[Rfam]
RNA: Small nucleolar RNA SNORD74
RNA sequence: GUGACUCUUGCAAUGAUGAAGGUUAUGUUGGUAGGGACAACUGACCUUGUUGAUGAAUACCAACAAUUCUGAUGGCAGAGC
Numbered sequence: 001g002u003g004a005c006u007c008u009u010g011c012a013a014u015g016a017u018g019a020a021g022g023u024u025a026u027g028u029u030g031g032u033a034g035g036g037a038c039a040a041c042u043g044a045c046c047u048u049g050u051u052g053a054u055g056a057a058u059a060c061c062a063a064c065a066a067u068u069c070u071g072a073u074g075g076c077a078g079a080g081c
Base pairs, nucleotide, nucleotide: 001081002080005078006077